[Rfam]
RNA sequence: AUGACGUGUAGCAUGGCCGUUGUGGAAUUACUCUGAUAAAUAUUUGUUAUUUAAUUGCUUUUGGAUAACGGGGUGUUACAUAGCU
Numbered sequence: 001a002u003g004a005c006g007u008g009u010a011g012c013a014u015g016g017c018c019g020u021u022g023u024g025g026a027a028u029u030a031c032u033c034u035g036a037u038a039a040a041u042a043u044u045u046g047u048u049a050u051u052u053a054a055u056u057g058c059u060u061u062u063g064g065a066u067a068a069c070g071g072g073g074u075g076u077u078a079c080a081u082a083g084c085u
Stems, first nucleotide, its partner, number of pairs: 003084001006081009017071005
RNA: MIR2617 microRNA precursor family
Organism: Medicago truncatula